[Rfam]
Rfam assigns this 132-nucleotide sequence from Phormidesmis priestleyi to the family "c-di-AMP riboswitch aptamer (ydaO/yuaA leader)". Pairs were carried over by alignment from the consensus structure. The literature on the family includes a 2004 paper in Proc Natl Acad Sci U S A by Barrick et al., "New RNA motifs suggest an expanded scope for riboswitches in bacterial genetic control".
RNA sequence: UGUUUAAUCGGGUCGAUUAUUCCAUUCAAAGCGGAGGAACCAACCUUAUUUUGGGGCGAAUCUCAGAGAGCUUGAGAGAGACACCUUCCAGUCUUAGCCCGUCAGCUAACUCCGUCGGCAAUGGGAGGAGUG
Numbered sequence: 001u002g003u004u005u006a007a008u009c010g011g012g013u014c015g016a017u018u019a020u021u022c023c024a025u026u027c028a029a030a031g032c033g034g035a036g037g038a039a040c041c042a043a044c045c046u047u048a049u050u051u052u053g054g055g056g057c058g059a060a061u062c063u064c065a066g067a068g069a070g071c072u073u074g075a076g077a078g079a080g081a082c083a084c085c086u087u088c089c090a091g092u093c094u095u096a097g098c099c100c101g102u103c104a105g106c107u108a109a110c111u112c113c114g115u116c117g118g119c120a121a122u123g124g125g126a127g128g129a130g131u132g
Base pairs, nucleotide, nucleotide: 012119013118014117018030020028031115032114033113034112035111036110041053042052054100055099056098062076063075064074065073079094080093081092082091